[Rfam]
RNA sequence: GGUUCCUGUCAGGGGAGUCUCGCCAGAGAGACUGAGAGGCUGAUAGCGAUUUUCGCGGCUUAGCGACCCUUAGAACCUGACCCAGCUGAUACUGGCGUAGGAAGACUCGUAUCUUGAUAA
Numbered sequence: 001g002g003u004u005c006c007u008g009u010c011a012g013g014g015g016a017g018u019c020u021c022g023c024c025a026g027a028g029a030g031a032c033u034g035a036g037a038g039g040c041u042g043a044u045a046g047c048g049a050u051u052u053u054c055g056c057g058g059c060u061u062a063g064c065g066a067c068c069c070u071u072a073g074a075a076c077c078u079g080a081c082c083c084a085g086c087u088g089a090u091a092c093u094g095g096c097g098u099a100g101g102a103a104g105a106c107u108c109g110u111a112u113c114u115u116g117a118u119a120a
Base pairs, nucleotide, nucleotide: 008106009105010104011070012069013068014067017032018031019030020029021028039064040063041062042061043060076101077100078099079098082095083094084093085092
RNA: TPP riboswitch aptamer (THI element)